mir-9193 microRNA precursor family: a 74-nucleotide RNA from Myotis davidii. The match comes from Rfam's covariance-model search (56 bits). Gene Ontology terms of the family: miRNA-mediated post-transcriptional gene silencing and RISC complex. Rfam 15.1 lists 6,008 matches to the family in 8 species. The organism belongs to Myotis, within Eukaryota.
RNA sequence: AGUGGGGGGUGGGGGGACUCUCAGCCUGGAUUGUGAGAAGGCGCAGGUCAGGCUGAGGUACCCCACCAUGCACG
Numbered sequence: 001a002g003u004g005g006g007g008g009g010u011g012g013g014g015g016g017a018c019u020c021u022c023a024g025c026c027u028g029g030a031u032u033g034u035g036a037g038a039a040g041g042c043g044c045a046g047g048u049c050a051g052g053c054u055g056a057g058g059u060a061c062c063c064c065a066c067c068a069u070g071c072a073c074g
Base pairs, nucleotide, nucleotide: 003072004071006069008067009066012064013063014062015061017059018058020057021056022055023054024053025052026051028049029048031046032045033044034043035042